[Rfam]
RNA sequence: AUGGUCCGGAAUUGGGGACCACCCUGUGUUUACUGAAUGUUACAAACCGUGAACACAGCUGGUGGUAUCUCAGUUUCUUUCCAUUG
Numbered sequence: 001a002u003g004g005u006c007c008g009g010a011a012u013u014g015g016g017g018a019c020c021a022c023c024c025u026g027u028g029u030u031u032a033c034u035g036a037a038u039g040u041u042a043c044a045a046a047c048c049g050u051g052a053a054c055a056c057a058g059c060u061g062g063u064g065g066u067a068u069c070u071c072a073g074u075u076u077c078u079u080u081c082c083a084u085u086g
Stems, first nucleotide, its partner, number of pairs: 008077005015071001016069002018066002021063003024058003028054001030052002

Rfam assigns this 86-nucleotide RNA sequence from Sitophilus oryzae to the family "mir-317 microRNA precursor family". Taxonomically the source falls in Sitophilus (Eukaryota, Ecdysozoa, Pancrustacea, Altocrustacea). The family has 25 seed sequences and 153 matches in Rfam 15.1. The base pairs follow the family's consensus structure, which was predicted with RNAalifold. It scores 61 bits against the family's covariance model.